[Rfam]
RNA sequence: GCUGCCGCUUGCACCUGCUGCUGGUGCCCAGCGCCGGUCCUGAUCACUCGGUGCCAUCAGCAGGUGCGAGCGGCUGCUG
Numbered sequence: 001g002c003u004g005c006c007g008c009u010u011g012c013a014c015c016u017g018c019u020g021c022u023g024g025u026g027c028c029c030a031g032c033g034c035c036g037g038u039c040c041u042g043a044u045c046a047c048u049c050g051g052u053g054c055c056a057u058c059a060g061c062a063g064g065u066g067c068g069a070g071c072g073g074c075u076g077c078u079g
Stems, first nucleotide, its partner, number of pairs: 004074017022056007
Dot-bracket structure: ...(((((((((((((((((.(((((((.....................))))))).))))))))))))))))).....
The record is a 79-nucleotide RNA sequence from Myotis brandtii, which matches "mir-9198 microRNA precursor family" in Rfam.
Lineage of the source: Eukaryota > Bilateria > Amniota > Vespertilionidae > Myotis.
It scores 96 bits against the family's covariance model.
Its family is annotated with RISC complex and miRNA-mediated post-transcriptional gene silencing in the Gene Ontology.